[Rfam]
RNA sequence: UAAUCUGUUUGUGACAGAUUCUCAUUUAGUUAUGACAGACUCGCCCCUGACUGCUCGGAAUCACUCACUACUAUGUGAACAAUAAUUUUUUGAGAUUUUAAUUGGAAU
Numbered sequence: 001u002a003a004u005c006u007g008u009u010u011g012u013g014a015c016a017g018a019u020u021c022u023c024a025u026u027u028a029g030u031u032a033u034g035a036c037a038g039a040c041u042c043g044c045c046c047c048u049g050a051c052u053g054c055u056c057g058g059a060a061u062c063a064c065u066c067a068c069u070a071c072u073a074u075g076u077g078a079a080c081a082a083u084a085a086u087u088u089u090u091u092g093a094g095a096u097u098u099u100a101a102u103u104g105g106a107a108u
Stems, first nucleotide, its partner, number of pairs: 004106004008101002015094001018091001024086002027082001029080003
Rfam assigns this 108-nucleotide RNA sequence from Populus trichocarpa to the family "MIR480 microRNA precursor family". The family has 69 seed sequences and 3,070 matches in Rfam 15.1. The match comes from Rfam's covariance-model search (63 bits). Pairs were carried over by alignment from the consensus structure, which was predicted with WAR.